RNA sequence: UAUCCGUUAACGCUGAAUUUUCAAUUGAAAAUCGGGGGAACCACCGGCAUCGAUUCGUUCGAUCGCCAAAUGGGGUGAAUCAGCGACGCCGUAAACCGGUGCCGCAGUAGGGCGACUCUAACGCCCGAAUCCGUCAGCUAACCUCGUAAGCGUCUUUAGAGGGUGAAA
Dot-bracket structure: ..........((((...(((........))).(((((....((...........................))(((.....(.((...................)).)..((((.........))))...))).........)))))..))))................
Record summary:
This 168-nucleotide RNA sequence from Cohnella endophytica belongs to the Rfam family "c-di-AMP riboswitch aptamer (ydaO/yuaA leader)". A search with the family's covariance model found it, with a score of 90 bits. The base pairs follow the family's consensus structure.